[Rfam]
RNA: mir-219 microRNA precursor family
RNA sequence: CUCGCCCUUGAUUGUCCAAACGCAAUUCUUGUUCCAAUAGAAAUAUCAAGCCAAGAAUUGUGCCUGGACAUCUGUGGCUGG
Number, nucleotide and partner (000 for none) at each position: 001c000002u080003c000004g078005c077006c076007c000008u000009u000010g072011a071012u070013u000014g069015u068016c067017c066018a065019a000020a000021c062022g061023c060024a059025a058026u057027u056028c055029u054030u053031g052032u000033u000034c000035c000036a000037a000038u000039a000040g000041a000042a000043a000044u000045a000046u000047c000048a000049a000050g000051c000052c031053a030054a029055g028056a027057a026058u025059u024060g023061u022062g021063c000064c000065u018066g017067g016068a015069c014070a012071u011072c010073u000074g000075u000076g006077g005078c004079u000080g002081g000